The family of this 121-nucleotide RNA is "DUF3800-I RNA". Actinobacteria, Firmicutes, Fusobacteria, Proteobacteria (1 example), Tenericutes (2 examples).
RNA sequence: UGUAAUCACAGACAGAAAUGUACUGUAUACAUUUGCAGUUGAUAAUUGCUAUUAAGCGUAAUGUAAGUACGCCGACGCAAAUGGGGAGAGCCGCUUUUGAGCGGUUCUUUUUUGUUUAAAA
Numbered sequence: 001u002g003u004a005a006u007c008a009c010a011g012a013c014a015g016a017a018a019u020g021u022a023c024u025g026u027a028u029a030c031a032u033u034u035g036c037a038g039u040u041g042a043u044a045a046u047u048g049c050u051a052u053u054a055a056g057c058g059u060a061a062u063g064u065a066a067g068u069a070c071g072c073c074g075a076c077g078c079a080a081a082u083g084g085g086g087a088g089a090g091c092c093g094c095u096u097u098u099g100a101g102c103g104g105u106u107c108u109u110u111u112u113u114g115u116u117u118a119a120a121a
Stems, first nucleotide, its partner, number of pairs: 008026004012021003030083006038076004042052003056072005084111012
The sequence is in the family's curated seed alignment.